[Rfam]
RNA: mir-2513 microRNA precursor family
RNA sequence: GUCAACGUCGGACGUUUCGGUCUAAUAAACCAUCUUCAGGACAUAUUCAUAAAUUAUAACAUUAUCAAUAUGAAUAUGUCCUGAAGAUGGUUUAUUAGACCGAAACGUCCGACGUUGAC
Numbered sequence: 001g002u003c004a005a006c007g008u009c010g011g012a013c014g015u016u017u018c019g020g021u022c023u024a025a026u027a028a029a030c031c032a033u034c035u036u037c038a039g040g041a042c043a044u045a046u047u048c049a050u051a052a053a054u055u056a057u058a059a060c061a062u063u064a065u066c067a068a069u070a071u072g073a074a075u076a077u078g079u080c081c082u083g084a085a086g087a088u089g090g091u092u093u094a095u096u097a098g099a100c101c102g103a104a105a106c107g108u109c110c111g112a113c114g115u116u117g118a119c
Base pairs, nucleotide, nucleotide: 001119002118003117004116005115006114007113008112009111010110011109012108013107014106015105016104018102019101020100021099022098023097024096025095026094027093028092029091031089032088034086035085036084037083038082039081040080041079042078043077044076045075046074047073048072